RNA sequence: GGGGGAAGGCUUAGAGCCCCCAGCCCGGGAGUGUUAAUAGUGCUGCAUUGGCCAUGCACCACGGUUAGUGAAUC
Numbered sequence: 001g002g003g004g005g006a007a008g009g010c011u012u013a014g015a016g017c018c019c020c021c022a023g024c025c026c027g028g029g030a031g032u033g034u035u036a037a038u039a040g041u042g043c044u045g046c047a048u049u050g051g052c053c054a055u056g057c058a059c060c061a062c063g064g065u066u067a068g069u070g071a072a073u074c
Stems, first nucleotide, its partner, number of pairs: 001021005034068005040062003044058004
Notes:
Rfam assigns this 74-nucleotide sequence to the family "L13-Bacteroidia ribosomal protein leader". On this family, see Eckert and Weinberg, BMC Microbiol 2020: "Discovery of 20 novel ribosomal leader candidates in bacteria and archaea". Rfam classes the family as a cis-regulatory leader.